[Rfam]
RNA sequence: UCAUCCGUCGCGGGAGACGCCGUGCACGUGCCCCCGGGCACGCCGUGCCCUCGGGCGCACGCACGGCACCGAAGGAGCAAUCCCCCCGUCAAUCUCUCAGGUCCCACACCGCAGCGGACAG
Numbered sequence: 001u002c003a004u005c006c007g008u009c010g011c012g013g014g015a016g017a018c019g020c021c022g023u024g025c026a027c028g029u030g031c032c033c034c035c036g037g038g039c040a041c042g043c044c045g046u047g048c049c050c051u052c053g054g055g056c057g058c059a060c061g062c063a064c065g066g067c068a069c070c071g072a073a074g075g076a077g078c079a080a081u082c083c084c085c086c087c088g089u090c091a092a093u094c095u096c097u098c099a100g101g102u103c104c105c106a107c108a109c110c111g112c113a114g115c116g117g118a119c120a121g
Stems, first nucleotide, its partner, number of pairs: 006116003010112004020066006068102003071098002075096003082088001
Rfam assigns this 121-nucleotide RNA sequence from Curtobacterium sp. MCBA15_009 to the family "Glycine riboswitch aptamer". The match comes from Rfam's covariance-model search (41 bits).